RNA sequence: ACAUCUUUUCAGGGCAGGGUGCAAGUCCCUACCGGCGGUAAAGCCCGCGAGCGAAGAAGAAUGGCAUGAUUAUUUUUCUGAUGCAUGAUCCGGUGAGAUUCCGGGGCCGACAGUAUAGUCUGGAUGAGAGAGAAGAAGA
Numbered sequence: 001a002c003a004u005c006u007u008u009u010c011a012g013g014g015c016a017g018g019g020u021g022c023a024a025g026u027c028c029c030u031a032c033c034g035g036c037g038g039u040a041a042a043g044c045c046c047g048c049g050a051g052c053g054a055a056g057a058a059g060a061a062u063g064g065c066a067u068g069a070u071u072a073u074u075u076u077u078c079u080g081a082u083g084c085a086u087g088a089u090c091c092g093g094u095g096a097g098a099u100u101c102c103g104g105g106g107c108c109g110a111c112a113g114u115a116u117a118g119u120c121u122g123g124a125u126g127a128g129a130g131a132g133a134a135g136a137a138g139a
Base pairs, nucleotide, nucleotide: 004136005135006134007133008132009131010130017029018028019027031119032118033109034108035048036047037046038045043107044106089105090104091103092102093101111122112121113120
RNA: FMN riboswitch aptamer (RFN element)
Organism: Pseudocoprococcus catus